c-di-GMP-I riboswitch aptamer: an 87-nucleotide RNA sequence from Aquibacillus halophilus. The source organism's lineage runs through Bacteria, Bacillati, Bacillota, Bacillaceae and Aquibacillus.
RNA sequence: UGUACGAAAAGGCAAACUCAUCGAAAGGUGACGUCGCAAAGCUAUAGGGGCUAAAUUUGAGAGAAAACAAGCCAGCCAGUUAUCGAA
Number, nucleotide and partner (000 for none) at each position: 001u000002g000003u000004a000005c000006g000007a000008a000009a000010a000011g000012g037013c036014a000015a000016a000017c000018u031019c030020a029021u028022c027023g000024a000025a000026a000027g022028g021029u020030g019031a018032c000033g000034u000035c000036g013037c012038a000039a000040a081041g080042c079043u078044a000045u000046a000047g077048g076049g073050g072051c071052u000053a000054a000055a000056u067057u066058u065059g000060a000061g000062a000063g000064a000065a058066a057067a056068c000069a000070a000071g051072c050073c049074a000075g000076c048077c047078a043079g042080u041081u040082a000083u000084c000085g000086a000087a000